This 71-nucleotide RNA from Trypanosoma cruzi belongs to the Rfam family "Trypanosomatid snoRNA TB11Cs3H1". By type it is an H/ACA-box small nucleolar RNA. The family has 4 seed sequences and 30 matches in Rfam 15.1. It scores 63 bits against the family's covariance model. On this family, see Liang et al., RNA 2005: "A genome-wide analysis of C/D and H/ACA-like small nucleolar RNAs in Trypanosoma brucei reveals a trypanosome-specific pattern of rRNA modification". The source organism's lineage runs through Eukaryota, Euglenozoa, Kinetoplastea, Metakinetoplastina and Schizotrypanum.
RNA sequence: CUGUCUUACUGAAUAAUCCCACCGGUGAGUGUAUCCAUUCGUUCUCCUGCGUGGACCUGAGAGAGCCAAGA
Dot-bracket structure: (...(((...........((((((..(((((....))))).......)).))))......))).)......